[Rfam]
RNA: c-di-AMP riboswitch aptamer (ydaO/yuaA leader)
Organism: Paraconexibacter algicola
Nucleotides: 196
Base pairs, nucleotide, nucleotide: 011182012181013180014179018042019041020040021039022038023037024036025035026034027033043177044176045175046174047173048172053086054085087162088161089160095112096111097110098109115156116155
Number, partner (000 for none) and nucleotide at each position: 001000a002000u003000u004000g005000u006000u007000c008000g009000a010000u011182c012181g013180c014179c015000g016000a017000g018042u019041c020040g021039u022038c023037u024036c025035c026034g027033c028000c029000c030000a031000c032000u033027g034026c035025g036024g037023g038022g039021a040020c041019g042018a043177g044176c045175g046174g047173g048172g049000g050000a051000c052000c053086c054085a055000c056000u057000c058000g059000c060000c061000a062000c063000c064000g065000c066000c067000g068000g069000g070000a071000a072000u073000c074000c075000c076000g077000g078000u079000g080000g081000a082000g083000g084000c085054u086053g087162g088161g089160g090000c091000g092000a093000a094000u095112c096111g097110g098109c099000c100000g101000c102000u103000g104000a105000u106000g107000c108000a109098g110097c111096c112095g113000u114000a115156g116155c117000g118000u119000c120000c121000u122000g123000u124000c125000g126000a127000g128000g129000a130000g131000c132000g133000u134000c135000a136000g137000a138000a139000g140000c141000g142000c143000u144000c145000c146000c147000g148000g149000c150000g151000g152000g153000c154000u155116g156115c157000g158000a159000g160089c161088c162087c163000g164000a165000c166000a167000g168000c169000u170000a171000a172048c173047c174046c175045c176044g177043u178000a179014g180013g181012c182011g183000g184000c185000a186000g187000a188000a189000g190000c191000g192000u193000u194000u195000c196000g